[Rfam]
RNA: Small nucleolar RNA SNORA72
Organism: Callorhinchus milii
RNA sequence: CCGCAAAUUUUCUCACUGGCUUUGUUUUUCACAAGCAAGUCAGGCUAGCAUUUCGCUAGAUUAAAGCCGUGCUCAGUGUCUAUGGGCCUUAUUUCUUAGUCCUGUUGUAAUCUUUGCUGGCAACAUUU
Numbered sequence: 001c002c003g004c005a006a007a008u009u010u011u012c013u014c015a016c017u018g019g020c021u022u023u024g025u026u027u028u029u030c031a032c033a034a035g036c037a038a039g040u041c042a043g044g045c046u047a048g049c050a051u052u053u054c055g056c057u058a059g060a061u062u063a064a065a066g067c068c069g070u071g072c073u074c075a076g077u078g079u080c081u082a083u084g085g086g087c088c089u090u091a092u093u094u095c096u097u098a099g100u101c102c103u104g105u106u107g108u109a110a111u112c113u114u115u116g117c118u119g120g121c122a123a124c125a126u127u128u
Base pairs, nucleotide, nucleotide: 003056004055016043017042018041019040020039021038022037024036025035026034066121067120068119069118071117072116082105083104084103085102086101088099089098091096